This 141-nucleotide part of an RNA from Paravahlkampfia sp. A1PW2 belongs to the Rfam family "Eukaryotic small subunit ribosomal RNA". The sequence is in the family's curated seed alignment.
[Rfam]
RNA sequence: CCGCCCGUCGCUCCUACCGAUUGGAUAGACAGGUGAACUUGAUGGACCUCUAUUUUGAGGGAAAUUUAUUAAACCUUUCUGUCUGUAGGAAGGAGAAGUCGUAACAAGGUCUCCGUAGGUGAACCUGCGGAGGGAUCGGGA
Numbered sequence: 001c002c003g004c005c006c007g008u009c010g011c012u013c014c015u016a017c018c019g020a021u022u023g024g025a026u027a028g029a030c031a032g033g034u035g036a037a038c039u040u041g042a043u044g045g046a047c048c049u050c051u052a053u054u055u056u057g058a059g060g061g062a063a064a065u066u067u068a069u070u071a072a073a074c075c076u077u078u079c080u081g082u083c084u085g086u087a088g089g090a091a092g093g094a095g096a097a098g099u100c101g102u103a104a105c106a107a108g109g110u111c112u113c114c115g116u117a118g119g120u121g122a123a124c125c126u127g128c129g130g131a132g133g134g135a136u137c138g139g140g141a
Stems, first nucleotide, its partner, number of pairs: 001108001003105001006101002009098001011095005017089002021085001023084007031076004037070001039068001041066003047060004110133010